[Rfam]
Overview
Rfam assigns this 116-nucleotide RNA sequence from Brachypodium distachyon to the family "MIR5070 microRNA precursor family".
RNA sequence: CAGGGUACCUUUUGACUCUUCUUAGUUCAACCAAAUGAACUAAAAUUUAAAAAUGACAUAACUUUUUAUAAAACUAGUUUAUUUGUUUGAACUAAGAAGUGUCAAAGAAUACCCUG
Numbered sequence: 001c002a003g004g005g006u007a008c009c010u011u012u013u014g015a016c017u018c019u020u021c022u023u024a025g026u027u028c029a030a031c032c033a034a035a036u037g038a039a040c041u042a043a044a045a046u047u048u049a050a051a052a053a054u055g056a057c058a059u060a061a062c063u064u065u066u067u068a069u070a071a072a073a074c075u076a077g078u079u080u081a082u083u084u085g086u087u088u089g090a091a092c093u094a095a096g097a098a099g100u101g102u103c104a105a106a107g108a109a110u111a112c113c114c115u116g
Stems, first nucleotide, its partner, number of pairs: 002115006010107007018099013032085011
Dot-bracket structure: .((((((..(((((((.(((((((((((((.(((((((((((................................))))))))))).))))))))))))).)))))))..)))))).
The family has 2 seed sequences and 266 matches in Rfam 15.1. A search with the family's covariance model found it, with a score of 116 bits. Taxonomically the source falls in Brachypodium (Eukaryota, Tracheophyta, Pooideae, Brachypodieae). Gene Ontology terms of the family: miRNA-mediated post-transcriptional gene silencing and RISC complex.